[Rfam]
RNA sequence: UUCAUUGUUGUCAAUGAUGCAUUCAUUUUGAAACUGAAUCCAAGUGAUUUAACGCAGAUUCGUCACUACCCCUGAGACAACGAUGAA
Number, nucleotide and partner (000 for none) at each position: 001u087002u086003c085004a084005u083006u082007g081008u080009u079010g078011u077012c076013a000014a000015u000016g000017a000018u000019g000020c000021a000022u000023u000024c000025a000026u000027u000028u000029u000030g000031a000032a000033a000034c000035u000036g000037a000038a000039u000040c000041c000042a000043a000044g000045u000046g000047a000048u000049u000050u000051a000052a000053c000054g000055c000056a000057g000058a000059u000060u000061c000062g000063u000064c000065a000066c000067u000068a000069c000070c000071c000072c000073u000074g000075a000076g012077a011078c010079a009080a008081c007082g006083a005084u004085g003086a002087a001

Description
The record is an 87-nucleotide RNA from Jaculus jaculus, which matches "Small nucleolar RNA SNORD70" in Rfam. A search with the family's covariance model found it, with a score of 96 bits. About the family: snoRNA HBII-234 belongs to the C/D family of snoRNAs. It is the human orthologue of the mouse MBII-234 and is predicted to guide 2'O-ribose methylation of the small 18S rRNA on position A512. It is hosted, together with HBII-95, by the core C/D box snoRNA protein encoding gene NOP5/NOP58. Its family is annotated with RNA processing and nucleolus in the Gene Ontology. Taxonomically the source falls in Jaculus (Eukaryota, Eumetazoa, Dipodidae, Dipodinae). The literature on the family includes a 2001 paper in EMBO J by Huttenhofer et al., "RNomics: an experimental approach that identifies 201 candidates for novel, small, non-messenger RNAs in mouse". Rfam classes the family as a C/D-box small nucleolar RNA.